[Rfam]
RNA: Small nucleolar RNA SNORA25
Organism: Camelus dromedarius
RNA sequence: AGGUCAUUUCAAAGAGGGCUGAUGGGACCAAAACCCAGGAGCUCUUAACGCUGUGAUCAAUGAUUAAGUUCUUCAUUGGAUGUAUGUAAUAGUAACUCAAUAAUGCUAUGUUUUCCUAAUGGAGAUACAAGA
Numbered sequence: 001a002g003g004u005c006a007u008u009u010c011a012a013a014g015a016g017g018g019c020u021g022a023u024g025g026g027a028c029c030a031a032a033a034c035c036c037a038g039g040a041g042c043u044c045u046u047a048a049c050g051c052u053g054u055g056a057u058c059a060a061u062g063a064u065u066a067a068g069u070u071c072u073u074c075a076u077u078g079g080a081u082g083u084a085u086g087u088a089a090u091a092g093u094a095a096c097u098c099a100a101u102a103a104u105g106c107u108a109u110g111u112u113u114u115c116c117u118a119a120u121g122g123a124g125a126u127a128c129a130a131g132a
Stems, first nucleotide, its partner, number of pairs: 002058006014046007023038001025036002070125005078116003089109004095104001097102001